[Rfam]
RNA sequence: UUCUUAGCUUAGUAGUAACCGUGCAUAAAGGUGAAAAUACCCAGAGAGUUAAGAAGGAAUGUGCAACCAUCCGUCUGUAAAGGCGGUAAAUUGAUGGCUGGCCUGAUAUAAGGCUGGCGCACCGUAUCGGUGUCCCUGAGCAGACCGGCGGGACGAUUCUUUCAUGGCGGGGCCUGUGCAUACCCCGUUUCAUCACCGGUUUGCAAACCUGAUUAGAGCGCACACUAUAAGUAGCAGGAAGGGCGUAGAUUCUUUGAACAAUCGGC
Numbered sequence: 001u002u003c004u005u006a007g008c009u010u011a012g013u014a015g016u017a018a019c020c021g022u023g024c025a026u027a028a029a030g031g032u033g034a035a036a037a038u039a040c041c042c043a044g045a046g047a048g049u050u051a052a053g054a055a056g057g058a059a060u061g062u063g064c065a066a067c068c069a070u071c072c073g074u075c076u077g078u079a080a081a082g083g084c085g086g087u088a089a090a091u092u093g094a095u096g097g098c099u100g101g102c103c104u105g106a107u108a109u110a111a112g113g114c115u116g117g118c119g120c121a122c123c124g125u126a127u128c129g130g131u132g133u134c135c136c137u138g139a140g141c142a143g144a145c146c147g148g149c150g151g152g153a154c155g156a157u158u159c160u161u162u163c164a165u166g167g168c169g170g171g172g173c174c175u176g177u178g179c180a181u182a183c184c185c186c187g188u189u190u191c192a193u194c195a196c197c198g199g200u201u202u203g204c205a206a207a208c209c210u211g212a213u214u215a216g217a218g219c220g221c222a223c224a225c226u227a228u229a230a231g232u233a234g235c236a237g238g239a240a241g242g243g244c245g246u247a248g249a250u251u252c253u254u255u256g257a258a259c260a261a262u263c264g265g266c
Stems, first nucleotide, its partner, number of pairs: 004045002007042001019031002097118008130246003134243004140204005146198003150194001155163002166189007208238004215226002
Shown here is a 266-nucleotide RNA sequence, a member of the family "RT-2 RNA". It is one of the family's seed sequences.